[Rfam]
RNA sequence: CGCAACGCGGGAGGCGUCGACACGCGGUCCACACCCUGGUCGCCGAGGGCCGCGCAGAGCCAAUGGCGAGACCGACCCGUCGAA
Numbered sequence: 001c002g003c004a005a006c007g008c009g010g011g012a013g014g015c016g017u018c019g020a021c022a023c024g025c026g027g028u029c030c031a032c033a034c035c036c037u038g039g040u041c042g043c044c045g046a047g048g049g050c051c052g053c054g055c056a057g058a059g060c061c062a063a064u065g066g067c068g069a070g071a072c073c074g075a076c077c078c079g080u081c082g083a084a
Stems, first nucleotide, its partner, number of pairs: 003082001005080001008079004013061003023054007038073002040069005
The family of this 84-nucleotide RNA is "c-di-GMP-II-GAG riboswitch aptamer". It is one of the family's seed sequences.